[Rfam]
RNA sequence: CCAAGCCAUGAUUGUCCAAACGCAAUUCUUGUGGAUAUGAUAGCAAGAACUGUGCAUGGACAUCAAUGCUUGA
Numbered sequence: 001c002c003a004a005g006c007c008a009u010g011a012u013u014g015u016c017c018a019a020a021c022g023c024a025a026u027u028c029u030u031g032u033g034g035a036u037a038u039g040a041u042a043g044c045a046a047g048a049a050c051u052g053u054g055c056a057u058g059g060a061c062a063u064c065a066a067u068g069c070u071u072g073a
Base pairs, nucleotide, nucleotide: 002072003071004070005069006068009065010064011063012062014061015060016059017058018057021054022053023052024051026049027048028047029046030045031044
mir-219 microRNA precursor family: a 73-nucleotide RNA from Araneus ventricosus.
A search with the family's covariance model found it, with a score of 71 bits.
Rfam 15.1 lists 1,318 matches to the family in 774 species.
The literature on the family includes a 2003 paper in Science by Lim et al., "Vertebrate microRNA genes".
Lineage of the source: Eukaryota > Eumetazoa > Arthropoda > Araneae > Araneus.